[Rfam]
The family of this 131-nucleotide RNA from Desulfosporosinus fructosivorans is "Molybdenum/Tungsten riboswitch aptamer (Moco RNA motif)". For this family Rfam cites "in molybdenum cofactor and tungsten cofactor metabolism" (Regulski et al., Mol Microbiol, 2008). The match comes from Rfam's covariance-model search (68 bits).

RNA sequence: UGAAUAAUUAACCUCCGAUCCAGUAGACCUAAAGAUCAAAUCCAUGGUCGCUGGACAGGGCUCUAAGCUCUCAGGGUUUUUCCGGAAACGGGUAGGCCUUCAUUUUGAAAAGGAGUAGCACGUAGUAGACU
Numbered sequence: 001u002g003a004a005u006a007a008u009u010a011a012c013c014u015c016c017g018a019u020c021c022a023g024u025a026g027a028c029c030u031a032a033a034g035a036u037c038a039a040a041u042c043c044a045u046g047g048u049c050g051c052u053g054g055a056c057a058g059g060g061c062u063c064u065a066a067g068c069u070c071u072c073a074g075g076g077u078u079u080u081u082c083c084g085g086a087a088a089c090g091g092g093u094a095g096g097c098c099u100u101c102a103u104u105u106u107g108a109a110a111a112g113g114a115g116u117a118g119c120a121c122g123u124a125g126u127a128g129a130c131u
Stems, first nucleotide, its partner, number of pairs: 013115004019055006026049004034042003057071005074099006081092004100108002